Rfam assigns this 83-nucleotide RNA sequence from Dioscorea zingiberensis to the family "Small nucleolar RNA SNORD24". A search with the family's covariance model found it, with a score of 67 bits. Rfam classes the family as a C/D-box small nucleolar RNA. Lineage of the source: Eukaryota > Streptophyta > Embryophyta > Euphyllophyta > Dioscorea. Rfam links the family to the GO terms nucleolus and RNA processing.
[Rfam]
RNA sequence: AGCCGAUGAUGUGAAAACAAAUAUUUGCUACUCUUGAUGGAUUAUCCAUUUGAUGAAUAUUAACCACCAAGAUCUCUGAGGCU
Numbered sequence: 001a002g003c004c005g006a007u008g009a010u011g012u013g014a015a016a017a018c019a020a021a022u023a024u025u026u027g028c029u030a031c032u033c034u035u036g037a038u039g040g041a042u043u044a045u046c047c048a049u050u051u052g053a054u055g056a057a058u059a060u061u062a063a064c065c066a067c068c069a070a071g072a073u074c075u076c077u078g079a080g081g082c083u
Base pairs, nucleotide, nucleotide: 001083002082003081004080